[Rfam]
RNA sequence: GUUGAGGACACUGGAGGCAGCGGUUCAUCGAUCUGUUCCCUGAACGCAACAGCGCUGGGAAUCGGUCGAUAAACCUCUGCAUCCAGCGCUUAAACC
Numbered sequence: 001g002u003u004g005a006g007g008a009c010a011c012u013g014g015a016g017g018c019a020g021c022g023g024u025u026c027a028u029c030g031a032u033c034u035g036u037u038c039c040c041u042g043a044a045c046g047c048a049a050c051a052g053c054g055c056u057g058g059g060a061a062u063c064g065g066u067c068g069a070u071a072a073a074c075c076u077c078u079g080c081a082u083c084c085a086g087c088g089c090u091u092a093a094a095c096c
Stems, first nucleotide, its partner, number of pairs: 013084003018079003022075004027070007036061005

MIR162_1 microRNA precursor family: a 96-nucleotide RNA from Nicotiana tabacum.
On this family, see Reinhart et al., Genes Dev 2002: "MicroRNAs in plants".
Rfam 15.1 lists 270 matches to the family in 158 species.
Rfam links the family to the GO terms miRNA-mediated post-transcriptional gene silencing and RISC complex.
It scores 90 bits against the family's covariance model.
Its Rfam clan is "MIR167 microRNA precursor clan".
Lineage of the source: Eukaryota > Mesangiospermae > eudicotyledons > Gunneridae > Nicotiana.